[Rfam]
RNA sequence: AUUGUCCUCAUUUGUAAGUCGCUUUGGAUAAAAGUGUCUGCUAAAUAAGUUUAG
Dot-bracket structure: ............((((...((((((.....))))))..))).)...........
RNA: UnaL2 LINE 3' element
Organism: Sinocyclocheilus anshuiensis